[Rfam]
RNA sequence: ACGCGCCAGGAUCGCCCCCCGUCAGCGAGUUUCGCCCACGGGGGCCAAAAUC
Numbered sequence: 001a002c003g004c005g006c007c008a009g010g011a012u013c014g015c016c017c018c019c020c021g022u023c024a025g026c027g028a029g030u031u032u033c034g035c036c037c038a039c040g041g042g043g044g045c046c047a048a049a050a051u052c
Base pairs, nucleotide, nucleotide: 016044017043018042019041020040021039022038025035026034027033028032
RNA: ffh sRNA
Organism: Celeribacter marinus